Record summary: Rfam assigns this 164-nucleotide sequence from Thalassobaculum litoreum to the family "FMN riboswitch aptamer (RFN element)". The base pairs follow the family's consensus structure, which is taken from published work.
[Rfam]
RNA sequence: GCGCGUUAUCGGGGCGGGGUGGAAGUCCCCACCGGCGGUGAUGGUCCCAGGCGGCGCCCGGGGCCGAGCCCGCGAGCGCCUUCGGGGAUUGUCUCCUUGGGGGGUCAGCAGAUCCGGUGCGAUCCCGGAGCCGACGGUCACAGUCCGGAUGAAAGAUAACGAAG
Numbered sequence: 001g002c003g004c005g006u007u008a009u010c011g012g013g014g015c016g017g018g019g020u021g022g023a024a025g026u027c028c029c030c031a032c033c034g035g036c037g038g039u040g041a042u043g044g045u046c047c048c049a050g051g052c053g054g055c056g057c058c059c060g061g062g063g064c065c066g067a068g069c070c071c072g073c074g075a076g077c078g079c080c081u082u083c084g085g086g087g088a089u090u091g092u093c094u095c096c097u098u099g100g101g102g103g104g105u106c107a108g109c110a111g112a113u114c115c116g117g118u119g120c121g122a123u124c125c126c127g128g129a130g131c132c133g134a135c136g137g138u139c140a141c142a143g144u145c146c147g148g149a150u151g152a153a154a155g156a157u158a159a160c161g162a163a164g
Base pairs, nucleotide, nucleotide: 004161005160006159007158008157009156010155017029018028019027031144032143033133034132035073036072037071038070068131069130076109077108113129114128115127116126117125135147136146137145
A search with the family's covariance model found it, with a score of 98 bits.
About the family: The RFN element is a highly conserved domain that is found frequently in the 5'-untranslated regions of prokaryotic mRNAs that encode for flavin mononucleotide (FMN) biosynthesis and transport proteins.